[Rfam]
RNA sequence: CCUGUUAUGCAACUAACAGUAGCCUAGGGACAGUGCGUCACCAGUAAUGGUGGGGUGCCAAGCGUCCUGACAAUGUACUCCCUGAAUUUCAGGUAUUGUUUUGCCGUGAGGUAAGCAAUGGAUUUCACCAGUAGCAGGUGGAUGAGAGG
Numbered sequence: 001c002c003u004g005u006u007a008u009g010c011a012a013c014u015a016a017c018a019g020u021a022g023c024c025u026a027g028g029g030a031c032a033g034u035g036c037g038u039c040a041c042c043a044g045u046a047a048u049g050g051u052g053g054g055g056u057g058c059c060a061a062g063c064g065u066c067c068u069g070a071c072a073a074u075g076u077a078c079u080c081c082c083u084g085a086a087u088u089u090c091a092g093g094u095a096u097u098g099u100u101u102u103g104c105c106g107u108g109a110g111g112u113a114a115g116c117a118a119u120g121g122a123u124u125u126c127a128c129c130a131g132u133a134g135c136a137g138g139u140g141g142a143u144g145a146g147a148g149g
Base pairs, nucleotide, nucleotide: 002019003018004017005016006015007014028067029066030065031064033058034057035056036055038053039052040051041050042049043048081093082092083091084090085089094120095119096118097117104111105110124142125141126140127139128138129137
The record is a 149-nucleotide RNA sequence from Xenorhabdus bovienii, which matches "Group II catalytic intron D1-D4-7" in Rfam. About the family: Group II introns are found in rRNA, tRNA and mRNA of organelles in fungi, plants and protists, and also in mRNA in bacteria. A reference for the family is Bonen and Vogel (2001), "The ins and outs of group II introns", Trends Genet.